[Rfam]
Annotation
Rfam assigns this 74-nucleotide sequence from Ziziphus jujuba to the family "Plastid-ycf2 5UTR RNA". The source organism's lineage runs through Eukaryota, Spermatophyta, Pentapetalae, Ziziphus and Ziziphus jujuba. Pairs were carried over by alignment from the consensus structure, which was predicted with LocARNA. It is annotated as a cis-regulatory element.

RNA sequence: AUGCAUCAGUAGGAAUUGAACCUAUGAAUUUGCCAAUUAUAAGUGAGGCGUUUUAACCAUUUAACCAUAGAUGC
Numbered sequence: 001a002u003g004c005a006u007c008a009g010u011a012g013g014a015a016u017u018g019a020a021c022c023u024a025u026g027a028a029u030u031u032g033c034c035a036a037u038u039a040u041a042a043g044u045g046a047g048g049c050g051u052u053u054u055a056a057c058c059a060u061u062u063a064a065c066c067a068u069a070g071a072u073g074c
Stems, first nucleotide, its partner, number of pairs: 003074005009025005039068002043065002046062003050058001
Dot-bracket structure: ..(((((.(((((.......))))).............((..((.(((.(.......).))).)).)).)))))